This 133-nucleotide sequence from Tupaia belangeri belongs to the Rfam family "Small nucleolar RNA SNORA71". On this family, see Ganot et al., Genes Dev 1997: "The family of box ACA small nucleolar RNAs is defined by an evolutionarily conserved secondary structure and ubiquitous sequence elements essential for RNA accumulation". Taxonomically the source falls in Tupaia belangeri (Eukaryota, Sarcopterygii, Euarchontoglires, Tupaiidae). Rfam 15.1 lists 1,805 matches to the family in 606 species. The family's consensus secondary structure was predicted with PFOLD. It is annotated as an H/ACA-box small nucleolar RNA. A search with the family's covariance model found it, with a score of 97 bits. Rfam links the family to the GO terms nucleolus and RNA processing. The members of this family belong to the H/ACA class of snoRNAs which bind a number of proteins (including dyskerin, Gar1p and Nop10p) to form snoRNP complexes. This class of snoRNAs are thought to guide the sites of modification of uridines to pseudouridines by forming direct base pairing interactions with substrate RNAs. This family includes U71 (SNORA71), ACA39 (SNORA39) and ACA60 (SNORA60). U71 and ACA60 are predicted to guide the pseudouridylation of U406 and U1004 in 18S rRNA respectively.
[Rfam]
RNA sequence: CCCUGCAUUGGUAAGUGAUCACGGACUGCUCGUGUCCUGGUCAUUGGUAGUGCAGACAGAGGAAAUGGGAAAGGGUUGCCCAAUGUUUGGAGGGUCCAUGUAUUUGCCUUUCAGUUCUGAGAGCUUUCCCACA
Numbered sequence: 001c002c003c004u005g006c007a008u009u010g011g012u013a014a015g016u017g018a019u020c021a022c023g024g025a026c027u028g029c030u031c032g033u034g035u036c037c038u039g040g041u042c043a044u045u046g047g048u049a050g051u052g053c054a055g056a057c058a059g060a061g062g063a064a065a066u067g068g069g070a071a072a073g074g075g076u077u078g079c080c081c082a083a084u085g086u087u088u089g090g091a092g093g094g095u096c097c098a099u100g101u102a103u104u105u106g107c108c109u110u111u112c113a114g115u116u117c118u119g120a121g122a123g124c125u126u127u128c129c130c131a132c133a
Base pairs, nucleotide, nucleotide: 003055004054005053006052007051008050009049014045015044016043017042018041019040020039021038023037024036025035026034067130068129069128070127071126072125073124085116087114088113089112090110091109092108093107